A member of the RNA family "transfer-messenger RNA" from Vulgatibacter incomptus, 369 nucleotides long.
The family is grouped with related families in Rfam's "tRNA clan".
Rfam links the family to the GO term RNA catabolic process.
RNA sequence: GGGGGCGAUCUGGUUUCGACGAGGGUAGCGAAGCCCGAGGCGCGUGCCGUGCUGGCCAACGGAGCACGUAAAUUCACUGUAGGCAAAGAACAAAAGCCAACGACAACGUUGAGCUCGCUGUCGCCGCCUAACAAAGCGGUUGCAUAGCGCGGAGGCCGGGAGCCCGCCGGAAGCGCCCGUCACCUCCGUCAUCGAAUCCGGCCGAUCCUGCCAAGACGCCCCGGGCGCGGCAGGGCCGUAUCAUCCGGGGAGCUUCACCGGGGAGCCUGCCCUUGGGCGCCUCGGCGAAGGAUAAAACAGGGGCUACGCACGUAGGGCCGAGGAGUAGAGCACUUUCGGACGCGGGUUCGAUUCCCGCCGCCUCCACCA
Number, nucleotide and partner (000 for none) at each position: 001g365002g364003g363004g362005g361006c360007g359008a000009u000010c000011u000012g000013g000014u000015u000016u000017c000018g000019a000020c338021g337022a336023g335024g334025g333026u332027a000028g000029c000030g000031a000032a326033g000034c000035c323036c322037g000038a000039g319040g318041c317042g000043c312044g311045u310046g309047c308048c068049g067050u066051g065052c064053u000054g000055g084056c083057c082058a000059a080060c079061g078062g000063a000064g052065c051066a050067c049068g048069u000070a000071a000072a000073u000074u000075c000076a000077c000078u061079g060080u059081a000082g057083g056084c055085a000086a000087a000088g000089a000090a000091c000092a000093a000094a000095a000096g000097c000098c000099a000100a000101c000102g000103a000104c000105a000106a000107c000108g000109u000110u000111g000112a000113g000114c000115u000116c000117g000118c000119u144120g143121u142122c000123g140124c139125c138126g137127c136128c000129u000130a000131a000132c000133a000134a000135a000136g127137c126138g125139g124140u123141u000142g121143c120144a119145u000146a000147g000148c000149g000150c188151g187152g186153a185154g184155g183156c000157c179158g178159g177160g176161a000162g174163c173164c000165c000166g202167c201168c200169g199170g198171a197172a000173g163174c162175g000176c160177c159178c158179g157180u000181c000182a000183c155184c154185u153186c152187c151188g150189u000190c000191a000192u000193c000194g000195a000196a000197u171198c170199c169200g168201g167202c166203c238204g237205a000206u235207c234208c233209u232210g231211c230212c000213a000214a000215g000216a000217c000218g000219c250220c249221c248222c247223g246224g000225g000226c000227g000228c000229g000230g211231c210232a209233g208234g207235g206236c000237c204238g203239u000240a000241u000242c000243a000244u000245c000246c223247g222248g221249g220250g219251a000252g000253c000254u289255u288256c287257a000258c285259c284260g283261g282262g281263g000264a000265g278266c277267c276268u000269g304270c303271c302272c301273u000274u297275g000276g267277g266278c265279g000280c000281c262282u261283c260284g259285g258286c000287g256288a255289a254290g000291g000292a000293u000294a000295a000296a000297a274298c000299a000300g000301g272302g271303g270304c269305u000306a000307c000308g047309c046310a045311c044312g043313u000314a000315g000316g000317g041318c040319c039320g000321a000322g036323g035324a000325g000326u032327a000328g000329a000330g000331c000332a026333c025334u024335u023336u022337c021338g020339g000340a000341c000342g358343c357344g356345g355346g354347u000348u000349c000350g000351a000352u000353u000354c346355c345356c344357g343358c342359c007360g006361c005362c004363u003364c002365c001366a000367c000368c000369a000
On this family, see Williams and Bartel, RNA 1996: "Phylogenetic analysis of tmRNA secondary structure". A search with the family's covariance model found it, with a score of 166 bits. The source organism's lineage runs through Bacteria, Myxococcota, Myxococcales, Vulgatibacteraceae and Vulgatibacter. From the family's description: Bacterial tmRNA, also known as 10Sa RNA or SsrA, is named for its dual tRNA and mRNA-like properties.